[Rfam]
RNA sequence: AAACCAUCCCGAGCGGCCGAGAGAUCUGGCUCGACGACGCCGCAGCAACCUUCGGACGUGCUCCGCCUCUCUCGGCGGACGCCUCAGAAAAGGUGCUACCGCCAGGGCCGAUGGGAG
Dot-bracket structure: ...(((((....(((((...(((..[[[[)))......)))))((((.(((((.................................)))..))))))...(]]]]...))))))...
Rfam assigns this 117-nucleotide sequence from Nesterenkonia xinjiangensis to the family "SAM riboswitch aptamer (S box leader)". It scores 50 bits against the family's covariance model.